Shown here is a 62-nucleotide sequence from Oryza sativa, a member of the family "MIR2907 microRNA precursor family".
The base pairs follow the family's consensus structure, which was predicted with RNAalifold.
RNA sequence: GCGUCCCCUCCUCCGCCCACUCAGCCGCCACGUGGCAGCUGAGCGAGGGCCUCGGGUAACGC
Numbered sequence: 001g002c003g004u005c006c007c008c009u010c011c012u013c014c015g016c017c018c019a020c021u022c023a024g025c026c027g028c029c030a031c032g033u034g035g036c037a038g039c040u041g042a043g044c045g046a047g048g049g050c051c052u053c054g055g056g057u058a059a060c061g062c
Stems, first nucleotide, its partner, number of pairs: 001062004005056002008054001015050004020043006028035002